[Rfam]
RNA sequence: AGUUCAAAGCCAUAGGCAGAAGUGUUCACAGCACAGCCUGUCAGAUUCCAGUGAGUCUGAAUUCUGCU
Numbered sequence: 001a002g003u004u005c006a007a008a009g010c011c012a013u014a015g016g017c018a019g020a021a022g023u024g025u026u027c028a029c030a031g032c033a034c035a036g037c038c039u040g041u042c043a044g045a046u047u048c049c050a051g052u053g054a055g056u057c058u059g060a061a062u063u064c065u066g067c068u
Stems, first nucleotide, its partner, number of pairs: 009037002014068001016067006022034003042059007
The record is a 68-nucleotide sequence from Alligator mississippiensis, which matches "Mammalian CPEB3 ribozyme" in Rfam. A search with the family's covariance model found it, with a score of 38 bits.